Shown here is a 132-nucleotide RNA sequence from Electrophorus electricus, a member of the family "Small nucleolar RNA U109". The base pairs follow the family's consensus structure, which was predicted with WAR. By type it is an H/ACA-box small nucleolar RNA. A reference for the family is Gu et al. (2005), "A novel experimental approach for systematic identification of box H/ACA snoRNAs from eukaryotes", Nucleic Acids Res. Its family is annotated with RNA processing and nucleolus in the Gene Ontology.
[Rfam]
RNA sequence: UUGCAUGGCUGUUACGGUUAUACUGCUGGAUCUUAGGAGUAUGAAUACACAGUCUUGCUAGAGAAAAAGAGUGCACAGGGCCACCAGUCUUUUAAGUACAGACUGUGCCGGUAGUAUAAAACUCACACAUUG
Numbered sequence: 001u002u003g004c005a006u007g008g009c010u011g012u013u014a015c016g017g018u019u020a021u022a023c024u025g026c027u028g029g030a031u032c033u034u035a036g037g038a039g040u041a042u043g044a045a046u047a048c049a050c051a052g053u054c055u056u057g058c059u060a061g062a063g064a065a066a067a068a069g070a071g072u073g074c075a076c077a078g079g080g081c082c083a084c085c086a087g088u089c090u091u092u093u094a095a096g097u098a099c100a101g102a103c104u105g106u107g108c109c110g111g112u113a114g115u116a117u118a119a120a121a122c123u124c125a126c127a128c129a130u131u132g
Base pairs, nucleotide, nucleotide: 003058004057005056007054008053019043020042021041022040023039024038026036069124070123071122080112081111084107085105086104087103088102089101090100